[Rfam]
RNA sequence: GGAGCUUAUCAGAAUCUCCAGGGGUACUGAUAAUUUUAAAAAGUCCCCCAGGCGUGAUUCUGAUUUGCUUC
Numbered sequence: 001g002g003a004g005c006u007u008a009u010c011a012g013a014a015u016c017u018c019c020a021g022g023g024g025u026a027c028u029g030a031u032a033a034u035u036u037u038a039a040a041a042a043g044u045c046c047c048c049c050a051g052g053c054g055u056g057a058u059u060c061u062g063a064u065u066u067g068c069u070u071c
Base pairs, nucleotide, nucleotide: 001071002070003069004068005067008064009063010062011061012060013059014058015057016056018052019051021049022048023047024046026044027043028042
Annotation:
A member of the RNA family "mir-361 microRNA precursor family" from Equus caballus, 71 nucleotides long.